[Rfam]
RNA sequence: CACGCCACUAUACCUGUCUGUCAGAGUGACUGAGUAUGAUCCAGUAGAGGCUCAGAGUCAACUCAACUUUAGGAAACAGGUCUGCCCGAGAACAAUGGACAACUCUGUGCCGUAAAGAUUGGAACAACU
Numbered sequence: 001c002a003c004g005c006c007a008c009u010a011u012a013c014c015u016g017u018c019u020g021u022c023a024g025a026g027u028g029a030c031u032g033a034g035u036a037u038g039a040u041c042c043a044g045u046a047g048a049g050g051c052u053c054a055g056a057g058u059c060a061a062c063u064c065a066a067c068u069u070u071a072g073g074a075a076a077c078a079g080g081u082c083u084g085c086c087c088g089a090g091a092a093c094a095a096u097g098g099a100c101a102a103c104u105c106u107g108u109g110c111c112g113u114a115a116a117g118a119u120u121g122g123a124a125c126a127a128c129u
Stems, first nucleotide, its partner, number of pairs: 005047001007045003018034002020031001021029002063122004067117004072111002077107004086098002
Shown here is a 129-nucleotide sequence from Liparis tanakae, a member of the family "Small nucleolar RNA SNORA65".
Its Rfam clan is "SNORA65 clan".
For this family Rfam cites "RNomics: an experimental approach that identifies 201 candidates for novel, small, non-messenger RNAs in mouse" (Huttenhofer et al., EMBO J, 2001).
U65 belongs to the H/ACA class of snoRNAs which are thought to guide the sites of modification of uridines to pseudouridines.
By type it is an H/ACA-box small nucleolar RNA.